The family of this 75-nucleotide RNA from Urocynchramus pylzowi is "mir-19 microRNA precursor family". Gene Ontology terms of the family: miRNA-mediated post-transcriptional gene silencing and RISC complex. The literature on the family includes a 2001 paper in Science by Lagos-Quintana et al., "Identification of novel genes coding for small expressed RNAs". Its Rfam clan is "mir-19 clan".
RNA sequence: GGGCUCAGUCAGUUUUCGGUGAUUGCUCAGUUGGUGUAUGAGCAACUGAGCAAUCACCGAAAACUGACUGAGCCC
Numbered sequence: 001g002g003g004c005u006c007a008g009u010c011a012g013u014u015u016u017c018g019g020u021g022a023u024u025g026c027u028c029a030g031u032u033g034g035u036g037u038a039u040g041a042g043c044a045a046c047u048g049a050g051c052a053a054u055c056a057c058c059g060a061a062a063a064c065u066g067a068c069u070g071a072g073c074c075c
Stems, first nucleotide, its partner, number of pairs: 003073029
The family's consensus secondary structure was predicted with RNAalifold.